[Rfam]
Rfam assigns this 77-nucleotide RNA sequence from Eubacterium sp. CAG:38 to the family "Fluoride riboswitch aptamer (crcB RNA motif)". For this family Rfam cites "Fluoride ion encapsulation by Mg2+ ions and phosphates in a fluoride riboswitch" (Ren et al., Nature, 2012). The organism belongs to Eubacterium, within Bacteria. A search with the family's covariance model found it, with a score of 47 bits.
RNA sequence: AUAGAACAAGGGAAUGAAGUACUCCCGAAGUGAAAAACACUUAAACCGCUUAUUAAGCUGAUGACUUCUGCGAUGAA
Number, nucleotide and partner (000 for none) at each position: 001a000002u000003a000004g000005a000006a000007c000008a000009a000010g026011g025012g024013a023014a000015u000016g068017a067018a066019g065020u064021a000022c000023u013024c012025c011026c010027g000028a000029a000030g000031u000032g000033a000034a000035a000036a000037a000038c000039a000040c000041u000042u000043a000044a000045a000046c000047c000048g058049c057050u056051u000052a000053u000054u000055a000056a050057g049058c048059u000060g000061a000062u000063g000064a020065c019066u018067u017068c016069u000070g000071c000072g000073a000074u000075g000076a000077a000